[Rfam]
RNA sequence: AAUUGAAGGAAGCAUGGUAAUGUGCACAUAAAUUGAUUUGGGUCUCUACGCCUGCCCUCUCUGAUGCCUGUCAGCUUUGAUUUGGGGGCAUGGUUCUGCUACAAAAUG
Numbered sequence: 001a002a003u004u005g006a007a008g009g010a011a012g013c014a015u016g017g018u019a020a021u022g023u024g025c026a027c028a029u030a031a032a033u034u035g036a037u038u039u040g041g042g043u044c045u046c047u048a049c050g051c052c053u054g055c056c057c058u059c060u061c062u063g064a065u066g067c068c069u070g071u072c073a074g075c076u077u078u079g080a081u082u083u084g085g086g087g088g089c090a091u092g093g094u095u096c097u098g099c100u101a102c103a104a105a106a107u108g
Stems, first nucleotide, its partner, number of pairs: 012025004040091001042089003050081001052079001054075002
Small nucleolar RNA snoR100: a 108-nucleotide RNA from Rhododendron williamsianum.
On this family, see Marker et al., Curr Biol 2002: "Experimental RNomics: identification of 140 candidates for small non-messenger RNAs in the plant Arabidopsis thaliana".
It is annotated as an H/ACA-box small nucleolar RNA.